This 154-nucleotide RNA from Octodon degus belongs to the Rfam family "Human acetyl-coA cholesterol acyltransferase mRNA". For this family Rfam cites "RNA secondary structures located in the interchromosomal region of human ACAT1 chimeric mRNA are required to produce the 56-kDa isoform" (Chen et al., Cell Res, 2008). The organism belongs to Octodon, within Eukaryota. The match comes from Rfam's covariance-model search (37 bits). The family has 8 seed sequences and 107 matches in Rfam 15.1. The family's RNA type in Rfam is cis-regulatory element.
RNA sequence: CGGCCGGGCAGCCGGCGUUGCGGGUCCAGAGCUGCCGGACGUCUUCUGGAGGCUGACCUCCCUGCUGCUCAGGCUCUCGCGGGUUUCCGACUGUCCUUUCGUCUCGGCGGAGGCCGCCGCACUCCGGCGGGCUCGGGCCUCAGGUAACGCCUGU
Numbered sequence: 001c002g003g004c005c006g007g008g009c010a011g012c013c014g015g016c017g018u019u020g021c022g023g024g025u026c027c028a029g030a031g032c033u034g035c036c037g038g039a040c041g042u043c044u045u046c047u048g049g050a051g052g053c054u055g056a057c058c059u060c061c062c063u064g065c066u067g068c069u070c071a072g073g074c075u076c077u078c079g080c081g082g083g084u085u086u087c088c089g090a091c092u093g094u095c096c097u098u099u100c101g102u103c104u105c106g107g108c109g110g111a112g113g114c115c116g117c118c119g120c121a122c123u124c125c126g127g128c129g130g131g132c133u134c135g136g137g138c139c140u141c142a143g144g145u146a147a148c149g150c151c152u153g154u
Base pairs, nucleotide, nucleotide: 013017035089037087038086039085041084042083043082045079048077049076050075051074054071055070058067106139107138108137113134117130118129119128